[Rfam]
RNA sequence: CGGGUGGGGCCCGCGCAGUCCGCCCGGAGGAUUCAACCCGGCGGGCCGUCGUCGGCCGCGCCGGGCGCGCGGAUCCCCCCCCCGCCCCGGACCCACCUCGGGGAAGGGGUUCCCGGGAGGGGACCGCCGCCCGGGCGGAGCCGGCCCCCGUCGGGCGCAUUUCCGCCGGGGCGGUGCGCCGCGACCGGCUCCGGGUCGGCCGGGAAGGCCCCGGUUCGGGCAGGUGGCCCGCCGCCCUCGCCCGGCGGCGGGUGUUACAGCCCCCGGGCCUCAGCCAUCGCCGCAUCCCGGGGCCGAGGGAGAAGACCGCCGCCGCGCCCUCCCCCCGCCGGCCCCCCGUCCCUCCCCCUCGCGGGGGCGGGCGGCGCGGGGGCCUCCGCGCGGGGGACGGGCCCCCCCGCUCCCGGCGCGACUGUCAACCGGGGCGGACUGCCCUCAGUGCGCCCCGACCGCGUCGCGCCGCCGGGCGGGGAGGCGCCACGCCGGGCGCCCGGGGUCCGCGGCGACGUCGGCCCCCCACCCGACCCGUCUUGAAACACGG
Number, nucleotide and partner (000 for none) at each position: 001c523002g522003g521004g520005u519006g518007g517008g516009g514010c000011c512012c511013g000014c000015g000016c000017a000018g000019u000020c173021c000022g000023c170024c169025c168026g167027g000028a000029g000030g000031a000032u000033u000034c000035a000036a000037c000038c000039c000040g000041g000042c000043g000044g000045g000046c000047c000048g000049u000050c000051g000052u000053c000054g000055g000056c000057c000058g000059c000060g000061c000062c000063g000064g000065g000066c000067g000068c000069g000070c000071g000072g000073a000074u000075c000076c000077c000078c000079c000080c000081c000082c000083c000084g000085c000086c000087c000088c000089g000090g000091a000092c000093c000094c000095a000096c000097c000098u000099c000100g000101g000102g000103g000104a000105a000106g000107g000108g000109g000110u000111u000112c000113c000114c000115g000116g000117g000118a000119g000120g000121g000122g000123a000124c000125c000126g000127c000128c000129g000130c000131c000132c000133g000134g000135g000136c000137g000138g000139a000140g000141c000142c000143g000144g000145c000146c000147c000148c000149c000150g000151u000152c000153g000154g000155g000156c000157g000158c000159a000160u000161u000162u000163c000164c000165g000166c000167c026168g025169g024170g023171g000172c000173g020174g000175u000176g000177c000178g504179c503180c502181g501182c500183g499184a000185c000186c000187g000188g000189c000190u000191c000192c000193g000194g000195g000196u000197c000198g000199g000200c000201c000202g000203g000204g000205a000206a000207g000208g000209c000210c000211c000212c000213g000214g000215u000216u000217c000218g000219g000220g000221c000222a000223g000224g000225u000226g000227g000228c000229c000230c000231g000232c000233c000234g000235c000236c000237c000238u000239c000240g000241c000242c000243c000244g000245g000246c000247g000248g000249c000250g000251g000252g000253u000254g000255u000256u000257a000258c000259a000260g000261c000262c000263c000264c000265c000266g000267g000268g000269c000270c000271u000272c000273a000274g000275c000276c000277a000278u000279c000280g000281c000282c000283g000284c000285a000286u000287c000288c000289c000290g000291g000292g000293g000294c000295c000296g000297a000298g000299g000300g000301a000302g000303a000304a000305g000306a000307c000308c000309g000310c000311c000312g000313c000314c000315g000316c000317g000318c000319c000320c000321u000322c000323c000324c000325c000326c000327c000328g000329c000330c000331g000332g000333c000334c000335c000336c000337c000338c000339g000340u000341c000342c000343c000344u000345c000346c000347c000348c000349c000350u000351c000352g000353c000354g000355g000356g000357g000358g000359c000360g000361g000362g000363c000364g000365g000366c000367g000368c000369g000370g000371g000372g000373g000374c000375c000376u000377c000378c000379g000380c000381g000382c000383g000384g000385g000386g000387g000388a000389c000390g000391g000392g000393c000394c000395c000396c000397c000398c000399c000400g000401c000402u000403c000404c000405c000406g000407g000408c000409g000410c000411g000412a000413c000414u000415g000416u000417c000418a000419a000420c000421c000422g000423g000424g000425g000426c000427g000428g000429a000430c000431u000432g000433c000434c000435c000436u000437c000438a000439g000440u000441g000442c000443g000444c000445c000446c000447c000448g000449a000450c000451c000452g000453c000454g000455u000456c000457g000458c000459g000460c000461c000462g000463c000464c000465g000466g000467g000468c000469g000470g000471g000472g000473a000474g000475g000476c000477g000478c000479c000480a000481c000482g000483c000484c000485g000486g000487g000488c000489g000490c000491c000492c000493g000494g000495g000496g000497u000498c000499c183500g182501c181502g180503g179504c178505g000506a000507c000508g000509u000510c000511g012512g011513c000514c009515c000516c008517c007518c006519a005520c004521c003522c002523g001524a000525c000526c541527c540528g539529u538530c000531u000532u000533g000534a000535a000536a000537c000538a529539c528540g527541g526